[Rfam]
RNA sequence: AGCCUCAUUCUAGACGAGAAUGGGCACUGCUGAUCAUGGUAUGUGUCCCAGAAUUGUUAAUGUGGCUAAAUCAAGACACAGGUUAUGCUUCCAUCACAGUAUUAUGUGUUACAGUGGUGACAAUGAGACCUGUAACAUUU
Numbered sequence: 001a002g003c004c005u006c007a008u009u010c011u012a013g014a015c016g017a018g019a020a021u022g023g024g025c026a027c028u029g030c031u032g033a034u035c036a037u038g039g040u041a042u043g044u045g046u047c048c049c050a051g052a053a054u055u056g057u058u059a060a061u062g063u064g065g066c067u068a069a070a071u072c073a074a075g076a077c078a079c080a081g082g083u084u085a086u087g088c089u090u091c092c093a094u095c096a097c098a099g100u101a102u103u104a105u106g107u108g109u110u111a112c113a114g115u116g117g118u119g120a121c122a123a124u125g126a127g128a129c130c131u132g133u134a135a136c137a138u139u140u
Base pairs, nucleotide, nucleotide: 002066003065004064006062007061008060022048023047024046025045026044027043078133079132080131081130082129092119093118094117095116096115097114
RNA: Small nucleolar RNA SNORA1